Bacterial RNase P class A: a 404-nucleotide sequence from Microlunatus endophyticus.
The base pairs follow the family's consensus structure, which is taken from published work.

[Rfam]
RNA sequence: UGAGUCGGCCAGGCGGUCGCGGUACCGGGAGACCGGUAUCGAGGAAAGUCCGGACUCCACAGAGCAGGGUGGUGGGUAACGCCCACCCGGGGUGACCCGCGGGACAGUGCCACAGAAAGCAAACCGCCCAGGUGUGCCGAGCAGAGGGGCUCGCCUGGGUAAGGGUGAAACGGUGGUGUAAGAGACCACCAGCGCUCCAGGUGACUGGAGCGGCUCGGUAAACCCCACCCGGAGCAAGAUCAAGAAGGGAACGCCUGCGUUCCCGCGGGAACUGUUCGAGGGCUGCUCGUCCGAGGUUCCCGGGUAGAUCGCUUCAGGCCGUCGGCAACGACGGUCGCAGAUAGAUGAUCGCCGCCCGGCGUUCGCGCCGGGCACAGGAUCCGGCUUAUCGGCCGGCUCACCUC
Number, nucleotide and partner (000 for none) at each position: 001u400002g399003a398004g397005u396006c395007g394008g393009c392010c391011a389012g353013g352014c351015g350016g349017u348018c347019g000020c041021g040022g039023u038024a037025c036026c035027g034028g033029g000030a000031g000032a000033c028034c027035g026036g025037u024038a023039u022040c021041g020042a000043g000044g000045a000046a387047a386048g385049u000050c384051c383052g382053g381054a380055c234056u233057c232058c231059a000060c000061a000062g288063a287064g286065c285066a000067g230068g229069g228070u227071g226072g086073u085074g084075g083076g082077u000078a000079a000080c000081g000082c076083c075084c074085a073086c072087c101088c099089g098090g097091g096092g000093u000094g000095a000096c091097c090098c089099g088100c000101g087102g225103g224104a000105c000106a000107g223108u222109g219110c218111c217112a000113c000114a000115g000116a000117a000118a000119g000120c000121a000122a000123a000124c164125c163126g160127c159128c158129c157130a156131g155132g154133u153134g152135u000136g000137c000138c000139g000140a000141g000142c000143a000144g000145a000146g000147g000148g000149g000150c000151u000152c134153g133154c132155c131156u130157g129158g128159g127160u126161a000162a000163g125164g124165g000166u000167g000168a000169a000170a000171c000172g190173g189174u188175g187176g186177u185178g000179u000180a000181a000182g000183a000184g000185a177186c176187c175188a174189c173190c172191a000192g214193c212194g211195c210196u209197c208198c207199a206200g205201g000202u000203g000204a000205c200206u199207g198208g197209a196210g195211c194212g193213g000214c192215u000216c000217g111218g110219u109220a000221a000222a108223c107224c103225c102226c071227a070228c069229c068230c067231g058232g057233a056234g055235c000236a000237a000238g310239a309240u308241c307242a000243a000244g000245a000246a000247g301248g300249g299250a298251a297252c296253g000254c000255c000256u000257g000258c000259g000260u000261u000262c000263c000264c000265g000266c000267g000268g000269g000270a000271a000272c000273u000274g000275u000276u000277c000278g000279a000280g292281g291282g290283c289284u000285g065286c064287u063288c062289g283290u282291c281292c280293g000294a000295g000296g252297u251298u250299c249300c248301c247302g000303g000304g000305u000306a000307g241308a240309u239310c238311g000312c000313u000314u000315c000316a000317g336318g335319c334320c333321g332322u331323c330324g329325g000326c000327a000328a000329c324330g323331a322332c321333g320334g319335u318336c317337g000338c000339a000340g000341a000342u000343a000344g000345a000346u000347g018348a017349u016350c015351g014352c013353c012354g000355c000356c000357c000358g000359g000360c000361g000362u000363u000364c000365g000366c000367g000368c000369c000370g000371g000372g000373c000374a000375c000376a000377g000378g000379a000380u054381c053382c052383g051384g050385c048386u047387u046388a000389u011390c000391g010392g009393c008394c007395g006396g005397c004398u003399c002400a001401c000402c000403u000404c000
The source organism's lineage runs through Bacteria, Bacillati, Actinomycetota, Actinomycetes and Microlunatus.